A member of the RNA family "ZMP/ZTP riboswitch aptamer (pfl RNA motif)" from Paenalicyclobacillus mengziensis, 79 nucleotides long.
[Rfam]
RNA sequence: CGACGAUUGCAUGACUGGCGGGUGUGGGUCACCACAAGGGAGUGCAAUUGAUAUACAGCCGACCGCCUGGGCACCCCAA
Numbered sequence: 001c002g003a004c005g006a007u008u009g010c011a012u013g014a015c016u017g018g019c020g021g022g023u024g025u026g027g028g029u030c031a032c033c034a035c036a037a038g039g040g041a042g043u044g045c046a047a048u049u050g051a052u053a054u055a056c057a058g059c060c061g062a063c064c065g066c067c068u069g070g071g072c073a074c075c076c077c078a079a
Stems, first nucleotide, its partner, number of pairs: 004050009015039002017067005024035004058072003

The organism belongs to Paenalicyclobacillus, within Bacteria. The match comes from Rfam's covariance-model search (64 bits).